Description
A member of the RNA family "bantam microRNA precursor family" from Hyalella azteca, 81 nucleotides long. Pairs were carried over by alignment from the consensus structure, which was predicted with RNAalifold. The literature on the family includes a 2010 paper in Genome Biol Evol by Marco et al., "Functional shifts in insect microRNA evolution". Lineage of the source: Eukaryota > Protostomia > Panarthropoda > Communostraca > Hyalella. Its Rfam clan is "mir-81 clan".
RNA sequence: UUCAUGUCACGAGACUGGUUUUCAUAAUGAUUUGACAGAUGUUUAUGUUUCUGAGAUCAUUGUGAAAGCUGAUUUCGUUCC
Dot-bracket structure: ........((((((.((((((((((..((((((....................))))))..)))))))))).))))))...
Numbered sequence: 001u002u003c004a005u006g007u008c009a010c011g012a013g014a015c016u017g018g019u020u021u022u023c024a025u026a027a028u029g030a031u032u033u034g035a036c037a038g039a040u041g042u043u044u045a046u047g048u049u050u051c052u053g054a055g056a057u058c059a060u061u062g063u064g065a066a067a068g069c070u071g072a073u074u075u076c077g078u079u080c081c
Stems, first nucleotide, its partner, number of pairs: 009078006016071010028059006